[Rfam]
RNA sequence: ACGCCCUUGCCGGAAGCGCCCCGCAGGAGCCGGGAGUCCGGCCGCAUCGCACGGCUCUGUCCGGCAGGUCCCUGGAACGAGGCGUCAUG
Numbered sequence: 001a002c003g004c005c006c007u008u009g010c011c012g013g014a015a016g017c018g019c020c021c022c023g024c025a026g027g028a029g030c031c032g033g034g035a036g037u038c039c040g041g042c043c044g045c046a047u048c049g050c051a052c053g054g055c056u057c058u059g060u061c062c063g064g065c066a067g068g069u070c071c072c073u074g075g076a077a078c079g080a081g082g083c084g085u086c087a088u089g
Stems, first nucleotide, its partner, number of pairs: 001085005010064004015058002018055003026048001027045001029042005067078001
Dot-bracket structure: (((((....((((.((.(((.....((.(((((....)))))..)..)....))).))..))))..(..........)..)))))....
Shown here is an 89-nucleotide RNA from Streptomyces luteocolor, a member of the family "dauA ncRNA motif". The organism belongs to Streptomyces, within Bacteria. Gene Ontology term of the family: regulation of gene expression. It is annotated as a cis-regulatory element. A reference for the family is Narunsky et al. (2024), "The discovery of novel noncoding RNAs in 50 bacterial genomes", Nucleic Acids Res. It is one of the family's seed sequences. dauA ncRNA motif was reported as a strong cis regulatory motif candidate, with potential to be a cis regulatory riboswitch type, it have been identified in genomes of the genus Streptomyces.